The family of this 217-nucleotide RNA sequence from Shewanella loihica is "Lysine riboswitch aptamer". Riboswitches are metabolite binding domains within certain messenger RNAs that serve as precision sensors for their corresponding targets. Lineage of the source: Bacteria > Gammaproteobacteria > Shewanellaceae > Shewanella > Shewanella loihica. Pairs were carried over by alignment from the consensus structure, which is taken from published work. For this family Rfam cites "Riboswitches Control Fundamental Biochemical Pathways in Bacillus subtilis and Other Bacteria" (Mandal et al., Cell, 2003). Gene Ontology term of the family: lysine biosynthetic process.
RNA sequence: CUGAGACGUAGAGGUGCAUUAAAUAUCAGUAGUAUUCGUUAGGGUGAUGCCGUUAAGCGAAUAUGAAAGGAUUUGGUGCCGAAGUGGUGGAGUUGAUCAAGGCUUGCCGCUGGGGCUGUCAUCGAAUAGAGGCAGCACUGCCAUAGUGCUUCUUAUCUGGAUUGAUAAGUGGAAGGUAUACCGAGAAUGGGUAUCACUAUGGAGCGCUACUGAUAGG
Numbered sequence: 001c002u003g004a005g006a007c008g009u010a011g012a013g014g015u016g017c018a019u020u021a022a023a024u025a026u027c028a029g030u031a032g033u034a035u036u037c038g039u040u041a042g043g044g045u046g047a048u049g050c051c052g053u054u055a056a057g058c059g060a061a062u063a064u065g066a067a068a069g070g071a072u073u074u075g076g077u078g079c080c081g082a083a084g085u086g087g088u089g090g091a092g093u094u095g096a097u098c099a100a101g102g103c104u105u106g107c108c109g110c111u112g113g114g115g116c117u118g119u120c121a122u123c124g125a126a127u128a129g130a131g132g133c134a135g136c137a138c139u140g141c142c143a144u145a146g147u148g149c150u151u152c153u154u155a156u157c158u159g160g161a162u163u164g165a166u167a168a169g170u171g172g173a174a175g176g177u178a179u180a181c182c183g184a185g186a187a188u189g190g191g192u193a194u195c196a197c198u199a200u201g202g203a204g205c206g207c208u209a210c211u212g213a214u215a216g217g
Stems, first nucleotide, its partner, number of pairs: 008210004016079009032064008083111005090105005112139002115136006122129001141202007